[Rfam]
RNA: Archaeal large subunit ribosomal RNA, nucleotides 1361 to 1716
Organism: Halorientalis sp. IM1011
RNA sequence: CAUAGUAGCAGCGAUAGUCGGGUAAGAAUCCCGACGGCCUUACGAGCAAGGGUUCCUCGGCACUGUUCGUCAACCGAGGGUUAGCCGGUCCUAAGUCCGUUCGUAACUCGCGACGGACAAAAGGGAAACUGGUUAAUAUUCCAGUGCUUCUCUGCAGUGAAACCGACGCCUCGGGGUCGACCAGACCGGGCCUUCGCCCGGUGGAACCGUCCAAAUCCGUGGAAGCCGUAAUGGCACGAAGCGGACGAACGGCGGGAUACCGCAAGCUGGUUCAACCUGGGGCCCGUGAAAAGGGAGCAGAGAAUCCGUACCGAGAUCCGACACAGGUGCUCGUGGCGGCGAAAGCCAAGGCCUGU
Number, nucleotide and partner (000 for none) at each position: 001c000002a000003u000004a000005g000006u000007a000008g000009c000010a000011g000012c000013g000014a000015u000016a000017g035018u034019c033020g032021g031022g030023u000024a000025a000026g000027a000028a000029u000030c022031c021032c020033g019034a018035c017036g353037g352038c351039c350040u000041u000042a000043c000044g332045a331046g330047c329048a000049a000050g312051g311052g000053u000054u000055c079056c078057u077058c076059g075060g074061c000062a000063c000064u072065g071066u000067u000068c000069g000070u000071c065072a064073a000074c060075c059076g058077a057078g056079g055080g000081u000082u000083a000084g000085c000086c308087g307088g306089u000090c124091c123092u000093a000094a000095g118096u117097c116098c115099g114100u113101u000102c110103g109104u000105a000106a000107c000108u000109c103110g102111c000112g000113a100114c099115g098116g097117a096118c095119a000120a000121a000122a000123g091124g090125g000126a000127a000128a145129c144130u143131g142132g141133u000134u000135a000136a000137u000138a000139u000140u000141c132142c131143a130144g129145u128146g000147c000148u304149u303150c302151u301152c300153u299154g298155c297156a000157g000158u000159g000160a000161a000162a000163c294164c293165g000166a000167c000168g283169c282170c281171u280172c279173g278174g277175g276176g000177u000178c000179g272180a271181c270182c269183a268184g000185a202186c201187c200188g199189g198190g000191c000192c000193u000194u000195c000196g000197c000198c189199c188200g187201g186202u185203g000204g000205a000206a000207c255208c254209g253210u252211c000212c000213a000214a000215a000216u245217c244218c243219g242220u241221g000222g000223a000224a000225g235226c234227c233228g000229u000230a000231a000232u000233g227234g226235c225236a000237c000238g000239a000240a000241g220242c219243g218244g217245a216246c000247g000248a000249a000250c000251g000252g210253c209254g208255g207256g000257a000258u000259a000260c000261c266262g000263c000264a000265a000266g261267c000268u183269g182270g181271u180272u179273c000274a000275a000276c175277c174278u173279g172280g171281g170282g169283c168284c000285c000286g000287u000288g000289a000290a000291a000292a000293g164294g163295g000296a000297g155298c154299a153300g152301a151302g150303a149304a148305u000306c088307c087308g086309u000310a000311c051312c050313g000314a000315g000316a000317u000318c327319c326320g000321a000322c000323a000324c000325a000326g319327g318328u000329g047330c046331u045332c044333g000334u348335g347336g346337c345338g000339g000340c000341g000342a000343a000344a000345g337346c336347c335348a334349a000350g039351g038352c037353c036354u000355g000356u000